[Rfam]
Shown here is an 86-nucleotide RNA sequence from Nannospalax galili, a member of the family "Stem loopII regulatory element in POLB". Lineage of the source: Eukaryota > Gnathostomata > Amniota > Theria > Nannospalax. It is annotated as a cis-regulatory element.
RNA sequence: UGCCCACCAUUAGUCCUAAUUUAUUUCUUAACCAUUGCUAUGUAAGGGUAUUUGGUGUUUUUAAAUGAUUGCUGCUUCUCUAUGCU
Numbered sequence: 001u002g003c004c005c006a007c008c009a010u011u012a013g014u015c016c017u018a019a020u021u022u023a024u025u026u027c028u029u030a031a032c033c034a035u036u037g038c039u040a041u042g043u044a045a046g047g048g049u050a051u052u053u054g055g056u057g058u059u060u061u062u063a064a065a066u067g068a069u070u071g072c073u074g075c076u077u078c079u080c081u082a083u084g085c086u
Base pairs, nucleotide, nucleotide: 009079012076017063018062019061025055026054031049032048033047035045036044037043038042
Rfam links the family to the GO term regulation of RNA stability.